[Rfam]
Nucleotides: 102
Base pairs, nucleotide, nucleotide: 038095039094040093042091052083053082054081055080056079057078058077059076
Number, partner (000 for none) and nucleotide at each position: 001000g002000u003000g004000u005000u006000a007000c008000a009000a010000g011000g012000g013000u014000u015000a016000u017000a018000c019000u020000u021000g022000u023000u024000c025000c026000c027000u028000a029000u030000a031000u032000u033000g034000a035000u036000g037000c038095c039094c040093a041000u042091c043000u044000u045000u046000a047000a048000c049000u050000u051000u052083g053082u054081c055080a056079a057078c058077u059076g060000u061000u062000u063000u064000u065000a066000u067000u068000u069000u070000u071000a072000c073000u074000u075000a076059c077058a078057g079056u080055u081054g082053a083052u084000u085000u086000u087000c088000u089000a090000a091042g092000c093040u094039g095038g096000u097000a098000c099000a100000u101000u102000u
A member of the RNA family "Small nucleolar RNA snoR99" from Lupinus albus, 102 nucleotides long. The family's consensus secondary structure was predicted with WAR. The family's RNA type in Rfam is H/ACA-box small nucleolar RNA. Rfam 15.1 lists 733 matches to the family in 222 species. The literature on the family includes a 2002 paper in Curr Biol by Marker et al., "Experimental RNomics: identification of 140 candidates for small non-messenger RNAs in the plant Arabidopsis thaliana".